Source information
A member of the RNA family "Ruegeria cis2 sRNA" from Rhodobacteraceae bacterium THAF1, 157 nucleotides long.
RNA sequence: GAUGUUCGAAUUAUGCGGAAAAUAGUUGAUGAAGACGUAGCCGCGCGCCUGAUCGAUCGAAUGGAACAGCGGAUUCCAGUCGAACCACGCGACCAUGUAUCCCGGCAGCGCAUUCGCCACGAACAUCUUGCCCGAUGCGAUCAUGCUGGCGCGGUUG
Numbered sequence: 001g002a003u004g005u006u007c008g009a010a011u012u013a014u015g016c017g018g019a020a021a022a023u024a025g026u027u028g029a030u031g032a033a034g035a036c037g038u039a040g041c042c043g044c045g046c047g048c049c050u051g052a053u054c055g056a057u058c059g060a061a062u063g064g065a066a067c068a069g070c071g072g073a074u075u076c077c078a079g080u081c082g083a084a085c086c087a088c089g090c091g092a093c094c095a096u097g098u099a100u101c102c103c104g105g106c107a108g109c110g111c112a113u114u115c116g117c118c119a120c121g122a123a124c125a126u127c128u129u130g131c132c133c134g135a136u137g138c139g140a141u142c143a144u145g146c147u148g149g150c151g152c153g154g155u156u157g
Stems, first nucleotide, its partner, number of pairs: 002038003006035002011033002016028003041059001043057001044055002067157003070153002074084003089150002092147001094145004101137001103134003106130003110126001113122002
The match comes from Rfam's covariance-model search (72 bits).